[Rfam]
RNA sequence: AAUCUAUCCAGAGCGACUGAGAGACCUAGCUCAAGGACGUCGCAGCAACCACCCCUGACGGGAAAGGUGCUCCCGCUAGGACCGAUAGAGU
Numbered sequence: 001a002a003u004c005u006a007u008c009c010a011g012a013g014c015g016a017c018u019g020a021g022a023g024a025c026c027u028a029g030c031u032c033a034a035g036g037a038c039g040u041c042g043c044a045g046c047a048a049c050c051a052c053c054c055c056u057g058a059c060g061g062g063a064a065a066g067g068u069g070c071u072c073c074c075g076c077u078a079g080g081a082c083c084g085a086u087a088g089a090g091u
Base pairs, nucleotide, nucleotide: 001091003089004088005087006086007085008084013043014042015041016040017039021032022031023030026079027078028077029076044071045070046069047068049067050066052062053061054060075083